[Rfam]
RNA sequence: CCAGCGGCCCGGGCCCCUCUGGCGAUAUGCGAUAUCGUGAUGUCGGACCGUUAUC
Numbered sequence: 001c002c003a004g005c006g007g008c009c010c011g012g013g014c015c016c017c018u019c020u021g022g023c024g025a026u027a028u029g030c031g032a033u034a035u036c037g038u039g040a041u042g043u044c045g046g047a048c049c050g051u052u053a054u055c
Stems, first nucleotide, its partner, number of pairs: 006049002009046004022038006